[Rfam]
RNA sequence: ACUCAACAGAGAUUCUUUAAAAAGGGUGAGUCUAAGUUGUAAAAGCGCGCCGCUCCCAAUGUAUUUUGGGAUGAGCGGAUUCUUGAUCAGCUUGUUAGCCCUAAACUUGUUUUUAGGGAGUUU
Numbered sequence: 001a002c003u004c005a006a007c008a009g010a011g012a013u014u015c016u017u018u019a020a021a022a023a024g025g026g027u028g029a030g031u032c033u034a035a036g037u038u039g040u041a042a043a044a045g046c047g048c049g050c051c052g053c054u055c056c057c058a059a060u061g062u063a064u065u066u067u068g069g070g071a072u073g074a075g076c077g078g079a080u081u082c083u084u085g086a087u088c089a090g091c092u093u094g095u096u097a098g099c100c101c102u103a104a105a106c107u108u109g110u111u112u113u114u115a116g117g118g119a120g121u122u123u
Base pairs, nucleotide, nucleotide: 023102024101025100026099027098034093035092036091037090038089043084044083045082050078051077052076053075054074055073
Notes: 6S-Flavo RNA: a 123-nucleotide RNA from Salegentibacter echinorum. NCBI's taxonomy places the organism under Bacteria, Flavobacteriia, Flavobacteriales, Flavobacteriaceae, Salegentibacter.